Rfam assigns this 159-nucleotide sequence from Nelumbo nucifera to the family "Small nucleolar RNA snoR2/U65". The literature on the family includes a 1998 paper in J Cell Sci by Shaw et al., "Localization and processing from a polycistronic precursor of novel snoRNAs in maize". NCBI's taxonomy places the organism under Eukaryota, Streptophytina, Spermatophyta, Nelumbonaceae, Nelumbo. The family has 11 seed sequences and 908 matches in Rfam 15.1. The family's RNA type in Rfam is H/ACA-box small nucleolar RNA. Its Rfam clan is "SNORA65 clan". It scores 138 bits against the family's covariance model.
[Rfam]
RNA sequence: GGUCCGAUGCCACGUCGCCGGUAGCGAAGUUGUGCAAUGACUGGCGAUGCUACGAUCGGACCUAAAUUAAAGCAUUCAUUGUUGUUUCGCAUAUUGAUAGGAACCUGUGGAUCUGAUUUUAACCAUUCAUCCACAGAGCCGGUUUCUGCGAUUACAUUU
Numbered sequence: 001g002g003u004c005c006g007a008u009g010c011c012a013c014g015u016c017g018c019c020g021g022u023a024g025c026g027a028a029g030u031u032g033u034g035c036a037a038u039g040a041c042u043g044g045c046g047a048u049g050c051u052a053c054g055a056u057c058g059g060a061c062c063u064a065a066a067u068u069a070a071a072g073c074a075u076u077c078a079u080u081g082u083u084g085u086u087u088c089g090c091a092u093a094u095u096g097a098u099a100g101g102a103a104c105c106u107g108u109g110g111a112u113c114u115g116a117u118u119u120u121a122a123c124c125a126u127u128c129a130u131c132c133a134c135a136g137a138g139c140c141g142g143u144u145u146c147u148g149c150g151a152u153u154a155c156a157u158u159u
Base pairs, nucleotide, nucleotide: 002061003060004059005058006057007056008055009053013049014048015047016046017045018044020042021041022040024035025034026033087151088150089149090148091147100140101139105136106135107134109132110131111130112129